[Rfam]
Shown here is a 143-nucleotide sequence from Providencia sneebia, a member of the family "Molybdenum/Tungsten riboswitch aptamer (Moco RNA motif)". A search with the family's covariance model found it, with a score of 94 bits. Its family is annotated with tungstate binding, regulation of gene expression and molybdenum ion binding in the Gene Ontology.

RNA sequence: ACUUUCAUAAAACUCCUAGCCUUAGCAUCUAAGUUCAUUAUAAAUGGAUAUGAUCCUUUGGCCGUGGCCUUAGAGCCACCAGGGUGCGAGAUAGAAAUGUCUGCAUCUCCCGUAUUUGGAAAGGUGUCAUUAUGCAGCAGCUU
Numbered sequence: 001a002c003u004u005u006c007a008u009a010a011a012a013c014u015c016c017u018a019g020c021c022u023u024a025g026c027a028u029c030u031a032a033g034u035u036c037a038u039u040a041u042a043a044a045u046g047g048a049u050a051u052g053a054u055c056c057u058u059u060g061g062c063c064g065u066g067g068c069c070u071u072a073g074a075g076c077c078a079c080c081a082g083g084g085u086g087c088g089a090g091a092u093a094g095a096a097a098u099g100u101c102u103g104c105a106u107c108u109c110c111c112g113u114a115u116u117u118g119g120a121a122a123g124g125u126g127u128c129a130u131u132a133u134g135c136a137g138c139a140g141c142u143u
Base pairs, nucleotide, nucleotide: 003137004136006134012127013126015124016123019062020061021060024057025056027054028053029052033049034048035047036046037045038044064079065078066077067076068075082108083107084106085105086104087103089102090101091100092099093098109119110118